[Rfam]
RNA sequence: UUGAGGGUGUAGUCCCAGUCGCCGGGGUCGGGGGUGAGCGCAUCGUCGCCCGCGUGGUCGCCGUCGGCGAGGACACCGAGGGUGACGGGCUCGUCGUACUUGCCGCUGCCCUCCUUCUGGAGCUUGCCGUGCGCGAUGAGGAGCAGUUCGUCGGCCGUGCUCCCCUUGGUGACGACGGUGUCGCCCGCGCUGUACUCGCGCUGGUUGAAGCGGCCCGCGAGCGCCUCCAGUGCCCCCUGGUCCUCCAGUUCGCGCAGCAGGGGCAGUUCGCGCAGUUCGCUGGGGAUGACGCUGAUGUCGGCGCCCGUGUUCGAGAACUCGACCCGUCCGUCGCCCAGGGUGUGGGUGAGGCGCCGGUUCACGCGGUAGGCGCCGCCCGUCGUCUCCACCCAGGGGAGGAUCCGCAGCAGCCAGCGGGUGGAGAUCCCCUGCAUCUGCGGGACGGUCUUGGUGGUGGUGGUGAGGUUGCGUGCUGCCGCUGUGGCGAGGCUCAGGUUCGG
Numbered sequence: 001u002u003g004a005g006g007g008u009g010u011a012g013u014c015c016c017a018g019u020c021g022c023c024g025g026g027g028u029c030g031g032g033g034g035u036g037a038g039c040g041c042a043u044c045g046u047c048g049c050c051c052g053c054g055u056g057g058u059c060g061c062c063g064u065c066g067g068c069g070a071g072g073a074c075a076c077c078g079a080g081g082g083u084g085a086c087g088g089g090c091u092c093g094u095c096g097u098a099c100u101u102g103c104c105g106c107u108g109c110c111c112u113c114c115u116u117c118u119g120g121a122g123c124u125u126g127c128c129g130u131g132c133g134c135g136a137u138g139a140g141g142a143g144c145a146g147u148u149c150g151u152c153g154g155c156c157g158u159g160c161u162c163c164c165c166u167u168g169g170u171g172a173c174g175a176c177g178g179u180g181u182c183g184c185c186c187g188c189g190c191u192g193u194a195c196u197c198g199c200g201c202u203g204g205u206u207g208a209a210g211c212g213g214c215c216c217g218c219g220a221g222c223g224c225c226u227c228c229a230g231u232g233c234c235c236c237c238u239g240g241u242c243c244u245c246c247a248g249u250u251c252g253c254g255c256a257g258c259a260g261g262g263g264c265a266g267u268u269c270g271c272g273c274a275g276u277u278c279g280c281u282g283g284g285g286a287u288g289a290c291g292c293u294g295a296u297g298u299c300g301g302c303g304c305c306c307g308u309g310u311u312c313g314a315g316a317a318c319u320c321g322a323c324c325c326g327u328c329c330g331u332c333g334c335c336c337a338g339g340g341u342g343u344g345g346g347u348g349a350g351g352c353g354c355c356g357g358u359u360c361a362c363g364c365g366g367u368a369g370g371c372g373c374c375g376c377c378c379g380u381c382g383u384c385u386c387c388a389c390c391c392a393g394g395g396g397a398g399g400a401u402c403c404g405c406a407g408c409a410g411c412c413a414g415c416g417g418g419u420g421g422a423g424a425u426c427c428c429c430u431g432c433a434u435c436u437g438c439g440g441g442a443c444g445g446u447c448u449u450g451g452u453g454g455u456g457g458u459g460g461u462g463a464g465g466u467u468g469c470g471u472g473c474u475g476c477c478g479c480u481g482u483g484g485c486g487a488g489g490c491u492c493a494g495g496u497u498c499g500g
Stems, first nucleotide, its partner, number of pairs: 006390004011385002014382001018328001021325001023321004028316002035313007045305001047303004052298001054233002058229001060227001063224002066110003077102004082097005118221001122218002126214002130209001134203002138199001140197001143196001149192002154190002156187002159184002161178002165174001167172001236294001240290003244286002249283002252280003256277003260271001262269001329342004353377001355375003360372001362370001391431007401421001403418001405416001407415001437476004442471003447465003451461002485499004
Shown here is a 500-nucleotide sequence from Streptomyces daliensis, a member of the family "Saccharopolyspora sRNA 350". A search with the family's covariance model found it, with a score of 130 bits. Rfam classes the family as an antisense RNA. Pairs were carried over by alignment from the consensus structure, which was predicted with RNAfold.